[Rfam]
RNA sequence: AUCAUUACUCGAACAUUAGCACUGACUUGAGUUGUGAAUGCAGUAAGUGCUAAUUGUUGGAGUAAUCUUG
Numbered sequence: 001a002u003c004a005u006u007a008c009u010c011g012a013a014c015a016u017u018a019g020c021a022c023u024g025a026c027u028u029g030a031g032u033u034g035u036g037a038a039u040g041c042a043g044u045a046a047g048u049g050c051u052a053a054u055u056g057u058u059g060g061a062g063u064a065a066u067c068u069u070g
Stems, first nucleotide, its partner, number of pairs: 004066007013057003017053001018051006025044003
RNA: miR-430 microRNA precursor family